[Rfam]
Shown here is a 162-nucleotide RNA sequence from Erwinia billingiae, a member of the family "Glm Y RNA activator of glmS mRNA". This family consists of a number of bacterial RNA genes of around 167 bases in length. The tke1 RNA gene is present in Escherichia coli, Shigella flexneri, Yersinia pestis and Salmonella species where it is found between the yfhK and purL genes.
RNA sequence: AGUGGCUCAUUCACCUGGUUACGACAGCCCUGCGAAAGCGGUCAAGCGCUUCAUAACAACCCGAAUGACGCACAAUACGGUGCCUGCCGUCCACCAAACCGAUACAGUCCACUUUGUGGCUCUAUCAAGCUUCGGACGCAACGUUGAGUUAGGCACCACCUA
Dot-bracket structure: ....((((((((......(((.((.(((...................))))).)))......)))))).)).......(((((((..(((((........((((..................)))).......))))).(((.....)))))))))).....
The family's RNA type in Rfam is small RNA. NCBI's taxonomy places the organism under Bacteria, Pseudomonadati, Pseudomonadota, Gammaproteobacteria, Erwinia.